A member of the RNA family "Lysine riboswitch aptamer" from Holzapfeliella floricola, 181 nucleotides long.
Rfam describes the family as follows. Riboswitches are metabolite binding domains within certain messenger RNAs that serve as precision sensors for their corresponding targets.
The family's consensus secondary structure is taken from published work.
The match comes from Rfam's covariance-model search (75 bits).
RNA sequence: UUUAGUAGAAGAGGUCGCAAUUGACAACAGCUAGUUAGCUCGCUAUCACAAUAGUAUUAGUUAAAAUUAGUGAGGGGAUAUUGCCGAAACGUCAAAGAGUUGUGACGAUUUGAUGUUGGGGUGUGGUUGAACAAAUCACAAACUGUCAUAAGCACAUAACUUAUGGAGAGCUAUCGACAAA
Numbered sequence: 001u002u003u004a005g006u007a008g009a010a011g012a013g014g015u016c017g018c019a020a021u022u023g024a025c026a027a028c029a030g031c032u033a034g035u036u037a038g039c040u041c042g043c044u045a046u047c048a049c050a051a052u053a054g055u056a057u058u059a060g061u062u063a064a065a066a067u068u069a070g071u072g073a074g075g076g077g078a079u080a081u082u083g084c085c086g087a088a089a090c091g092u093c094a095a096a097g098a099g100u101u102g103u104g105a106c107g108a109u110u111u112g113a114u115g116u117u118g119g120g121g122u123g124u125g126g127u128u129g130a131a132c133a134a135a136u137c138a139c140a141a142a143c144u145g146u147c148a149u150a151a152g153c154a155c156a157u158a159a160c161u162u163a164u165g166g167a168g169a170g171c172u173a174u175c176g177a178c179a180a181a
Stems, first nucleotide, its partner, number of pairs: 006176001008174001010172002017084005025076001030071007088117009099106001118144002122140007146166007